The record is a 100-nucleotide RNA from Botrytis cinerea, which matches "Small nucleolar RNA Z13/snr52" in Rfam. The sequence is in the family's curated seed alignment. The family's consensus secondary structure was predicted with PFOLD. The family has 42 seed sequences and 1,203 matches in Rfam 15.1. Rfam classes the family as a C/D-box small nucleolar RNA.

RNA sequence: UUUCUUUUAGUGAUGAAAUAUUCCGGAUGUUAAAUCAUAUUGUCUCCGAGAGCGCAAAACCGUGUGGAGAUUUUCCGUUGCCUUCCUUCUGAUUCUAGAC
Dot-bracket structure: ..(((..................((((..............................................))))...................))).